This 129-nucleotide RNA sequence from Pantoea sp. Eser belongs to the Rfam family "RtT RNA". This family represents a bacterial cis-regulatory element known as RtT RNA. The exact function of RtT is unknown although it is thought that it may be involved in changing the cellular response in relation to amino acid starvation. The source organism's lineage runs through Bacteria, Pseudomonadati, Pseudomonadota, Erwiniaceae and Pantoea. A search with the family's covariance model found it, with a score of 87 bits. For this family Rfam cites "A novel RNA product of the tyrT operon of Escherichia coli" (Bosl and Kersten, Nucleic Acids Res, 1991). The base pairs follow the family's consensus structure, which is taken from published work.
[Rfam]
RNA sequence: UUUCGUCCGUAGUAAAAGAGGAUGAGAACCUCCGCAGGAGGUUUGAGCCGAGCGCAGCGAGACAACGUUGCUUCAGCAACGGCCCGCAGGGCAGGCUCGCAGAGCCAGGUAAUCCUCUCUCGCCGAUCA
Numbered sequence: 001u002u003u004c005g006u007c008c009g010u011a012g013u014a015a016a017a018g019a020g021g022a023u024g025a026g027a028a029c030c031u032c033c034g035c036a037g038g039a040g041g042u043u044u045g046a047g048c049c050g051a052g053c054g055c056a057g058c059g060a061g062a063c064a065a066c067g068u069u070g071c072u073u074c075a076g077c078a079a080c081g082g083c084c085c086g087c088a089g090g091g092c093a094g095g096c097u098c099g100c101a102g103a104g105c106c107a108g109g110u111a112a113u114c115c116u117c118u119c120u121c122g123c124c125g126a127u128c129a
Stems, first nucleotide, its partner, number of pairs: 015120001017118005023112001034092001042088001044086002049059002066081006